[Rfam]
RNA sequence: GAUUACCUGAGAUGUUCGCCAGAGGGUUACGUCCCUGAGCCGAUAUUUAUAUUUUUAGAGUUGGUUUCUCAGCUGUUGGUGUGCAGGCUUAGUUCUACUAAGAAGCCUAAAAACGGUUAUAGCUAGCUCCCUUGAACCGUCGGGUUCAAGGACCGACCACCCACAACGGCAUCUCGGGGCUCUC
Numbered sequence: 001g002a003u004u005a006c007c008u009g010a011g012a013u014g015u016u017c018g019c020c021a022g023a024g025g026g027u028u029a030c031g032u033c034c035c036u037g038a039g040c041c042g043a044u045a046u047u048u049a050u051a052u053u054u055u056u057a058g059a060g061u062u063g064g065u066u067u068c069u070c071a072g073c074u075g076u077u078g079g080u081g082u083g084c085a086g087g088c089u090u091a092g093u094u095c096u097a098c099u100a101a102g103a104a105g106c107c108u109a110a111a112a113a114c115g116g117u118u119a120u121a122g123c124u125a126g127c128u129c130c131c132u133u134g135a136a137c138c139g140u141c142g143g144g145u146u147c148a149a150g151g152a153c154c155g156a157c158c159a160c161c162c163a164c165a166a167c168g169g170c171a172u173c174u175c176g177g178g179g180c181u182c183u184c
Stems, first nucleotide, its partner, number of pairs: 006178010017168002031153004036148006058129003062125005069119001071118007083106002088102005